[Rfam]
RNA sequence: GUCCAGAAAACAAUGAUGUCAUAAUUUCCAAGCACAUAUCUGACAGUUCUGUGCAGAAUUCAACCACUGAGUUUUCUGGAU
Numbered sequence: 001g002u003c004c005a006g007a008a009a010a011c012a013a014u015g016a017u018g019u020c021a022u023a024a025u026u027u028c029c030a031a032g033c034a035c036a037u038a039u040c041u042g043a044c045a046g047u048u049c050u051g052u053g054c055a056g057a058a059u060u061c062a063a064c065c066a067c068u069g070a071g072u073u074u075u076c077u078g079g080a081u
Base pairs, nucleotide, nucleotide: 001081002080003079004078005077006076008074009073010072011071
RNA: Small nucleolar RNA SNORD121A